The family of this 116-nucleotide RNA from Oscillibacter sp. PC13 is "THF (Tetrahydrofolate) riboswitch aptamer".
Pairs were carried over by alignment from the consensus structure, which is taken from published work.
Tetrahydrofolate (THF) riboswitch was first reported for Ames et al. as an RNA motif in 5' untranslated (5'-UTR)regions of folate transport and biosynthesis genes in Firmicutes genomes.
[Rfam]
RNA sequence: GGCAGAGUAGAGACACACGUGUGAAAUAGUGCCGGAAAAACGGGGAGUUGUUUUUCGGACGAAGGGGCAAGGCCUUUGGCUAGAAGCCCGCAGUGUGUGUUUCGCAUCCCGCUGCC
Numbered sequence: 001g002g003c004a005g006a007g008u009a010g011a012g013a014c015a016c017a018c019g020u021g022u023g024a025a026a027u028a029g030u031g032c033c034g035g036a037a038a039a040a041c042g043g044g045g046a047g048u049u050g051u052u053u054u055u056c057g058g059a060c061g062a063a064g065g066g067g068c069a070a071g072g073c074c075u076u077u078g079g080c081u082a083g084a085a086g087c088c089c090g091c092a093g094u095g096u097g098u099g100u101u102u103c104g105c106a107u108c109c110c111g112c113u114g115c116c
Stems, first nucleotide, its partner, number of pairs: 001116005010103010020092003029060002032058008043109003047105001065089004

NCBI's taxonomy places the organism under Bacteria, Clostridia, Eubacteriales, Oscillospiraceae, Oscillibacter.